[Rfam]
RNA sequence: AUAAACAUUGUAUGUAAGUUGCUCUGGAUAAGAGCGUCUGCUAAAUGCAAAUAA
Numbered sequence: 001a002u003a004a005a006c007a008u009u010g011u012a013u014g015u016a017a018g019u020u021g022c023u024c025u026g027g028a029u030a031a032g033a034g035c036g037u038c039u040g041c042u043a044a045a046u047g048c049a050a051a052u053a054a
Stems, first nucleotide, its partner, number of pairs: 013043001014041003020036006